[Rfam]
RNA: SAM riboswitch aptamer (S box leader)
RNA sequence: UAUCCAUCAAGACCGGCUUAGGGACAGGCCCGAUGACGCCGGGGCAGCCGCCGUCGAGGUAACUCGACGGAAUGGUGCCAAAUCCUGCGGGGACCUUCGUCGGGUCCGCCGGUAGAUGGAUC
Numbered sequence: 001u002a003u004c005c006a007u008c009a010a011g012a013c014c015g016g017c018u019u020a021g022g023g024a025c026a027g028g029c030c031c032g033a034u035g036a037c038g039c040c041g042g043g044g045c046a047g048c049c050g051c052c053g054u055c056g057a058g059g060u061a062a063c064u065c066g067a068c069g070g071a072a073u074g075g076u077g078c079c080a081a082a083u084c085c086u087g088c089g090g091g092g093a094c095c096u097u098c099g100u101c102g103g104g105u106c107c108g109c110c111g112g113u114a115g116a117u118g119g120a121u122c
Stems, first nucleotide, its partner, number of pairs: 002121007013042005021031003025087004043079004048075002051070006083114001088111003092107001
Dot-bracket structure: .(((((((....(((((...(((.[[[[)))......)))))((((.((.((((((........))))))...))))))...(]]]](((.(..............).)))..)))))))).